[Rfam]
RNA: Manganese Mn2+ riboswitch aptamer (yybP-ykoY)
RNA sequence: UGAAUUGUCAAAGGGGAGUAGCGGUGGGAUUUAAAUGCUAAUUCCAAGAUAAAGUCGUCAUUACAUGAUUUUUAAAUCAUCGGCUUUAUUGGCAAGAAAUUGCUCAGCGAGACCUUUGUCCUAAUAAGGCAGAGGUCUCGCUU
Numbered sequence: 001u002g003a004a005u006u007g008u009c010a011a012a013g014g015g016g017a018g019u020a021g022c023g024g025u026g027g028g029a030u031u032u033a034a035a036u037g038c039u040a041a042u043u044c045c046a047a048g049a050u051a052a053a054g055u056c057g058u059c060a061u062u063a064c065a066u067g068a069u070u071u072u073u074a075a076a077u078c079a080u081c082g083g084c085u086u087u088a089u090u091g092g093c094a095a096g097a098a099a100u101u102g103c104u105c106a107g108c109g110a111g112a113c114c115u116u117u118g119u120c121c122u123a124a125u126a127a128g129g130c131a132g133a134g135g136u137c138u139c140g141c142u143u
Stems, first nucleotide, its partner, number of pairs: 025046005048090010065080005091142003095138003